A member of the RNA family "Small nucleolar RNA snoR99" from Actinidia chinensis, 100 nucleotides long.
[Rfam]
RNA sequence: GUGCUGAAGAGGGUAUUACAAUCCCUACAUUUACUUCCAUUCUUCAACUUUGUCAGCUGAGUUCAUUUAUUUGCAGUUGAUUUUCUGGGGUGGUACAUAA
Numbered sequence: 001g002u003g004c005u006g007a008a009g010a011g012g013g014u015a016u017u018a019c020a021a022u023c024c025c026u027a028c029a030u031u032u033a034c035u036u037c038c039a040u041u042c043u044u045c046a047a048c049u050u051u052g053u054c055a056g057c058u059g060a061g062u063u064c065a066u067u068u069a070u071u072u073g074c075a076g077u078u079g080a081u082u083u084u085c086u087g088g089g090g091u092g093g094u095a096c097a098u099a100a
Stems, first nucleotide, its partner, number of pairs: 037093005052081008
It scores 46 bits against the family's covariance model. The family's RNA type in Rfam is H/ACA-box small nucleolar RNA. Taxonomically the source falls in Actinidia chinensis (Eukaryota, Embryophyta, Tracheophyta, Spermatophyta). A reference for the family is Marker et al. (2002), "Experimental RNomics: identification of 140 candidates for small non-messenger RNAs in the plant Arabidopsis thaliana", Curr Biol.